[Rfam]
RNA sequence: GCACUGGCCUCAUUCCCGUUCCUCACUGUGCAGUGCAGGUCUGGGGGCACUUGGUGCUACAGCGCAGCAGCGGAAAUCCAGAUGGGUUCCUCACUGGUUUGGGACUCAUCUCUACACCUCUGCAACACCA
Dot-bracket structure: (((((.......((((((..((...............))..)))))).....))))).........((((.(.......((((((((......(((...))).))))))))......).)))).......